Mammalian CPEB3 ribozyme: a 75-nucleotide RNA from Alligator sinensis.

RNA sequence: GUUGUACAUUCAAGGCCAUAGGAGAAGUGCUCACAGCACAACCCGUCAGAUUCCAAUGAAUCUGUGAAUUCUGCU
Numbered sequence: 001g002u003u004g005u006a007c008a009u010u011c012a013a014g015g016c017c018a019u020a021g022g023a024g025a026a027g028u029g030c031u032c033a034c035a036g037c038a039c040a041a042c043c044c045g046u047c048a049g050a051u052u053c054c055a056a057u058g059a060a061u062c063u064g065u066g067a068a069u070u071c072u073g074c075u
Base pairs, nucleotide, nucleotide: 014043015042020075021074023072024071025070026069027039028038029037047064048063049062050061051060052059053058
The mammalian CPEB3 ribozyme is a self cleaving RNA located in the second intron of the CPEB3 gene which belongs to a family of genes regulating messenger RNA polyadenylation. This ribozyme is highly conserved and found only in mammals. The CPEB3 ribozyme is structurally and biochemically related to the human hepatitis delta virus (HDV) ribozyme and the HDV ribozyme is proposed to have arisen from the human transcriptome. There is currently only one other known self cleaving ribozyme in mammals, the CoTC motif. The base pairs follow the family's consensus structure, which is taken from published work.